[Rfam]
RNA sequence: GCAAAUUGAGGUAGUAGGUUGUAUAGUAGUAUCUAUCUAGCAUACUAUACAGCUUGCUAGCUUUCUUUGC
Numbered sequence: 001g002c003a004a005a006u007u008g009a010g011g012u013a014g015u016a017g018g019u020u021g022u023a024u025a026g027u028a029g030u031a032u033c034u035a036u037c038u039a040g041c042a043u044a045c046u047a048u049a050c051a052g053c054u055u056g057c058u059a060g061c062u063u064u065c066u067u068u069g070c
Stems, first nucleotide, its partner, number of pairs: 001070005008063003012059016033040002
A member of the RNA family "let-7 microRNA precursor family" from Drosophila grimshawi, 70 nucleotides long. A reference for the family is Rougvie (2001), "Control of developmental timing in animals", Nat Rev Genet. The family is grouped with related families in Rfam's "let-7 microRNA precursor clan". The family has 64 seed sequences and 8,694 matches in Rfam 15.1. Its family is annotated with miRNA-mediated post-transcriptional gene silencing and RISC complex in the Gene Ontology. The source organism's lineage runs through Eukaryota, Altocrustacea, Pterygota, Diptera and Hawaiian Drosophila. This family represents the microRNAs (miRNA) let-7 and mir-98. let-7 was identified from a study of developmental timing in C. elegans, and was later shown to be part of a much larger class of non-coding RNAs termed miRNAs.